Notes: This 70-nucleotide RNA sequence from Trypanosoma vivax belongs to the Rfam family "Trypanosomatid snoRNA TB10Cs1H1". The literature on the family includes a 2005 paper in RNA by Liang et al., "A genome-wide analysis of C/D and H/ACA-like small nucleolar RNAs in Trypanosoma brucei reveals a trypanosome-specific pattern of rRNA modification". Rfam 15.1 lists 73 matches to the family in 16 species. Pairs were carried over by alignment from the consensus structure, which was predicted with WAR. Rfam classes the family as an H/ACA-box small nucleolar RNA.

RNA sequence: CAAUCCCCUUCGACAGCGAGCAGCACGCCUGUGCGUUCCCGCAAGCCGCUCGUCUACACCGGGUAAGUAA
Numbered sequence: 001c002a003a004u005c006c007c008c009u010u011c012g013a014c015a016g017c018g019a020g021c022a023g024c025a026c027g028c029c030u031g032u033g034c035g036u037u038c039c040c041g042c043a044a045g046c047c048g049c050u051c052g053u054c055u056a057c058a059c060c061g062g063g064u065a066a067g068u069a070a
Base pairs, nucleotide, nucleotide: 003064006063007062008061016053017052018051019050020049021048023046024045